Annotation: The record is a 202-nucleotide RNA from Geococcyx californianus, which matches "Small nucleolar RNA SNORA74" in Rfam. Rfam classes the family as an H/ACA-box small nucleolar RNA. Rfam 15.1 lists 1,348 matches to the family in 628 species. U19 belongs to the H/ACA class of snoRNAs. snoRNAs bind a number of proteins (including dyskerin, Gar1p and Nop10p in the case of the H/ACA class) to form snoRNP complexes.
[Rfam]
RNA sequence: UCCAGCAGAGUCGGCUACUCAUUGCUGCUCAGUGCUUGGGAUAGUGUUAUGCUGCUGGGAAAUAAAUGUGCUGCUGAAUGACCCCUGGCACCGCCAGUGCUGUUCUGGUGCUGGGCGGCGCCAGGUUUGGCAACACGCUGCAUCCGUGAGAGUGGAGUAGCUCCUCCUUGGUGGAGUUAAUCCUAGAUCGGCUGCAGACAAU
Numbered sequence: 001u002c003c004a005g006c007a008g009a010g011u012c013g014g015c016u017a018c019u020c021a022u023u024g025c026u027g028c029u030c031a032g033u034g035c036u037u038g039g040g041a042u043a044g045u046g047u048u049a050u051g052c053u054g055c056u057g058g059g060a061a062a063u064a065a066a067u068g069u070g071c072u073g074c075u076g077a078a079u080g081a082c083c084c085c086u087g088g089c090a091c092c093g094c095c096a097g098u099g100c101u102g103u104u105c106u107g108g109u110g111c112u113g114g115g116c117g118g119c120g121c122c123a124g125g126u127u128u129g130g131c132a133a134c135a136c137g138c139u140g141c142a143u144c145c146g147u148g149a150g151a152g153u154g155g156a157g158u159a160g161c162u163c164c165u166c167c168u169u170g171g172u173g174g175a176g177u178u179a180a181u182c183c184u185a186g187a188u189c190g191g192c193u194g195c196a197g198a199c200a201a202u
Stems, first nucleotide, its partner, number of pairs: 001059008010050002014045004019040001020038002024035002068136003072132005084125006091118004095113007138197005144191002154183003158179007